[Rfam]
RNA sequence: GGCAGAGUAGGGACAUACGUGUACAUCCAGUGCUGGAGAGACGGGGAGUUGCUCUUCGGACGAAAGGACCGCGAGUCCGCAGUGUGUGUCCCGCAUCCCGCUGCC
Numbered sequence: 001g002g003c004a005g006a007g008u009a010g011g012g013a014c015a016u017a018c019g020u021g022u023a024c025a026u027c028c029a030g031u032g033c034u035g036g037a038g039a040g041a042c043g044g045g046g047a048g049u050u051g052c053u054c055u056u057c058g059g060a061c062g063a064a065a066g067g068a069c070c071g072c073g074a075g076u077c078c079g080c081a082g083u084g085u086g087u088g089u090c091c092c093g094c095a096u097c098c099c100g101c102u103g104c105c
Base pairs, nucleotide, nucleotide: 001105002104003103004102005101010092011091012090013089014088015087016086017085018084019083020081021080022079030061031060033059034058035057036056037055038054039053040052044098045097046096048094066078067077068076069075
Background:
The record is a 105-nucleotide RNA from Dysosmobacter welbionis, which matches "THF (Tetrahydrofolate) riboswitch aptamer" in Rfam. The base pairs follow the family's consensus structure, which is taken from published work. Rfam links the family to the GO term tetrahydrofolate metabolic process. The organism belongs to Dysosmobacter, within Bacteria.